[Rfam]
RNA sequence: AGAUGAAUUACGGGCAAGUUCUCCUUUGACAUAGAGCCACUAGAGAACAUGUGCAAAACGCCGCAUGUCUGUGAAGUAAGCUCACUGCCAAAGGAGAUUUGUCCCGCAAUUCUAAG
Numbered sequence: 001a002g003a004u005g006a007a008u009u010a011c012g013g014g015c016a017a018g019u020u021c022u023c024c025u026u027u028g029a030c031a032u033a034g035a036g037c038c039a040c041u042a043g044a045g046a047a048c049a050u051g052u053g054c055a056a057a058a059c060g061c062c063g064c065a066u067g068u069c070u071g072u073g074a075a076g077u078a079a080g081c082u083c084a085c086u087g088c089c090a091a092a093g094g095a096g097a098u099u100u101g102u103c104c105c106g107c108a109a110u111u112c113u114a115a116g
Stems, first nucleotide, its partner, number of pairs: 005112005011106004015101004021096004027090002030087002034083004

Background: This 116-nucleotide RNA from Kingdonia uniflora belongs to the Rfam family "mir-399 microRNA precursor family". Taxonomically the source falls in Kingdonia (Eukaryota, Embryophyta, Spermatophyta, Mesangiospermae). From the family's description: mir-399 was identified in both Arabidopsis thaliana and Oryza sativa computationally and was later experimentally verified. mir-399 is thought to target mRNAs coding for a phosphatase transporter. The mature sequence is excised from the 3' arm of the hairpin. A search with the family's covariance model found it, with a score of 60 bits. Gene Ontology terms of the family: RISC complex and miRNA-mediated post-transcriptional gene silencing. The literature on the family includes a 2004 paper in Mol Cell by Jones-Rhoades and Bartel, "Computational Identification of Plant MicroRNAs and Their Targets, Including a Stress-Induced miRNA".